A. fumigatus sRNA Afu_309: a 379-nucleotide RNA sequence from Capronia coronata.

[Rfam]
RNA sequence: ACCAUACAACAGUUCUGUGUCGCAACGAUCCCUUCCUCCUUCAUGGGAGUGGUCGGUUGAUUGUUGCGACGAUUCUCGACUCAUCGCGUGGAGAUAUUAUUGCACCUCCGUUAAUGUCUUUCUUCCCAGUCGACAGAACUGAGAUCAACCCGAGACCUUUUCGUCCGCUUCGAGAGAAGGGGACCGGUCUGCCUUGAACUCAUCCUGAGACAAAAGCCGUUGCAGCUCGCCUUCUUCGGAGGGCGAGUUCCGGCUUUUCGAACGGGGUUUGCAGUUCGGCGGGCCGUAAGGUGUGUAGGGAGACGUCUUAUUCCCAGGCGUGGUGUGAUCCUCGUCGAGGAAUGAUCACCGGGCAAAACCAAGACUAUUGUCUACAUCA
Numbered sequence: 001a002c003c004a005u006a007c008a009a010c011a012g013u014u015c016u017g018u019g020u021c022g023c024a025a026c027g028a029u030c031c032c033u034u035c036c037u038c039c040u041u042c043a044u045g046g047g048a049g050u051g052g053u054c055g056g057u058u059g060a061u062u063g064u065u066g067c068g069a070c071g072a073u074u075c076u077c078g079a080c081u082c083a084u085c086g087c088g089u090g091g092a093g094a095u096a097u098u099a100u101u102g103c104a105c106c107u108c109c110g111u112u113a114a115u116g117u118c119u120u121u122c123u124u125c126c127c128a129g130u131c132g133a134c135a136g137a138a139c140u141g142a143g144a145u146c147a148a149c150c151c152g153a154g155a156c157c158u159u160u161u162c163g164u165c166c167g168c169u170u171c172g173a174g175a176g177a178a179g180g181g182g183a184c185c186g187g188u189c190u191g192c193c194u195u196g197a198a199c200u201c202a203u204c205c206u207g208a209g210a211c212a213a214a215a216g217c218c219g220u221u222g223c224a225g226c227u228c229g230c231c232u233u234c235u236u237c238g239g240a241g242g243g244c245g246a247g248u249u250c251c252g253g254c255u256u257u258u259c260g261a262a263c264g265g266g267g268u269u270u271g272c273a274g275u276u277c278g279g280c281g282g283g284c285c286g287u288a289a290g291g292u293g294u295g296u297a298g299g300g301a302g303a304c305g306u307c308u309u310a311u312u313c314c315c316a317g318g319c320g321u322g323g324u325g326u327g328a329u330c331c332u333c334g335u336c337g338a339g340g341a342a343u344g345a346u347c348a349c350c351g352g353g354c355a356a357a358a359c360c361a362a363g364a365c366u367a368u369u370g371u372c373u374a375c376a377u378c379a
Stems, first nucleotide, its partner, number of pairs: 011140008019070003023066003027062004031056002035052001036049002038046001040045001077132005090118002093115001095113001151295001155292004165282004171278003302372003305365005318354002321352001323350001326348003330340004
Dot-bracket structure: ..........(((((((((((.(((.((((((..((((.(....)).))..)..))..)))).))).)))......(((((........((.(.(.................).).)).........)))))))))))))..........(...((((......((((..(((......................................................................................................)))))))......))))..)......((((((((........((.(.(..(((.((((...)))).....))).).)))......)))))....))).......

The literature on the family includes a 2008 paper in Nucleic Acids Res by Jochl et al., "Small ncRNA transcriptome analysis from Aspergillus fumigatus suggests a novel mechanism for regulation of protein synthesis". Taxonomically the source falls in Capronia coronata (Eukaryota, Fungi, Ascomycota, saccharomyceta).